[Rfam]
RNA sequence: UGACCAUUUCUUUUGUGUCUUGCGGAAGAAAUCAAACGCCAUACGGACAGCUGGGUCAAAAUGCCGG
Numbered sequence: 001u002g003a004c005c006a007u008u009u010c011u012u013u014u015g016u017g018u019c020u021u022g023c024g025g026a027a028g029a030a031a032u033c034a035a036a037c038g039c040c041a042u043a044c045g046g047a048c049a050g051c052u053g054g055g056u057c058a059a060a061a062u063g064c065c066g067g
Base pairs, nucleotide, nucleotide: 001058002057003056004055005054006032007031008030009029010028011027012026013025014024015023016022
RNA: Streptococcus sRNA SpF59 (ldcC RNA)